RNA sequence: ACUUGGAUAAGGCACUCUUAUUUUGUGGAUACUACCAAAAUAAAUGCCUUGUCCUUGGGA
Numbered sequence: 001a002c003u004u005g006g007a008u009a010a011g012g013c014a015c016u017c018u019u020a021u022u023u024u025g026u027g028g029a030u031a032c033u034a035c036c037a038a039a040a041u042a043a044a045u046g047c048c049u050u051g052u053c054c055u056u057g058g059g060a
Stems, first nucleotide, its partner, number of pairs: 002057001005054008019042007027035001
Shown here is a 60-nucleotide sequence from Phascolarctos cinereus, a member of the family "mir-7386 microRNA precursor family". Rfam links the family to the GO terms miRNA-mediated post-transcriptional gene silencing and RISC complex.